[Rfam]
RNA: Gammaretrovirus core encapsidation signal
Organism: Gammaretrovirus murleu
RNA sequence: GGCGGUACUAGUUGAGAAACUAGCUCUGUAUCUGGCGGACCCGUGGUGGAACUGUGAAGUUCGGAACACCCGGCCGCAACCCUGGGAGAGGUCCCAGGGUU
Numbered sequence: 001g002g003c004g005g006u007a008c009u010a011g012u013u014g015a016g017a018a019a020c021u022a023g024c025u026c027u028g029u030a031u032c033u034g035g036c037g038g039a040c041c042c043g044u045g046g047u048g049g050a051a052c053u054g055u056g057a058a059g060u061u062c063g064g065a066a067c068a069c070c071c072g073g074c075c076g077c078a079a080c081c082c083u084g085g086g087a088g089a090g091g092u093c094c095c096a097g098g099g100u101u
Stems, first nucleotide, its partner, number of pairs: 002029004008023006035077004041073003045070004049062005080099008